[Rfam]
RNA sequence: AAAAAAGCAGGGGUCUGUUGCCUGUGUGAACAGGUCUCUCGUAAACUUCAGGGAAAUCAGUUUCAUUGUUAUUGGGUGAACCUCUUUUUUUUUUUCUGUGGCUGAAGGUUCAGUAAACGAUGGCACAUUU
Numbered sequence: 001a002a003a004a005a006a007g008c009a010g011g012g013g014u015c016u017g018u019u020g021c022c023u024g025u026g027u028g029a030a031c032a033g034g035u036c037u038c039u040c041g042u043a044a045a046c047u048u049c050a051g052g053g054a055a056a057u058c059a060g061u062u063u064c065a066u067u068g069u070u071a072u073u074g075g076g077u078g079a080a081c082c083u084c085u086u087u088u089u090u091u092u093u094u095u096c097u098g099u100g101g102c103u104g105a106a107g108g109u110u111c112a113g114u115a116a117a118c119g120a121u122g123g124c125a126c127a128u129u130u
Stems, first nucleotide, its partner, number of pairs: 005048003011037002014034004064122007077112007

About this RNA:
This 130-nucleotide RNA sequence from Populus alba belongs to the Rfam family "Small nucleolar RNA snoR74". It scores 120 bits against the family's covariance model. The organism belongs to Populus, within Eukaryota. Pairs were carried over by alignment from the consensus structure, which was predicted with WAR. Rfam links the family to the GO terms nucleolus and RNA processing. It is annotated as an H/ACA-box small nucleolar RNA.